Shown here is a 38-nucleotide RNA from Gracilibacillus halophilus, a member of the family "Ribosomal protein L19 leader".
[Rfam]
RNA sequence: ACGAUGUUCCGCUGUCUAAGGUUAGGCAAGAGCAUUAG
Numbered sequence: 001a002c003g004a005u006g007u008u009c010c011g012c013u014g015u016c017u018a019a020g021g022u023u024a025g026g027c028a029a030g031a032g033c034a035u036u037a038g
Stems, first nucleotide, its partner, number of pairs: 003036007013028002016025003
This family is a putative r-protein leader autoregulatory structure found in B. subtilis and other low-GC Gram-positive bacteria. It is located in the 5' untranslated regions of mRNAs encoding ribosomal protein L19 (rplS).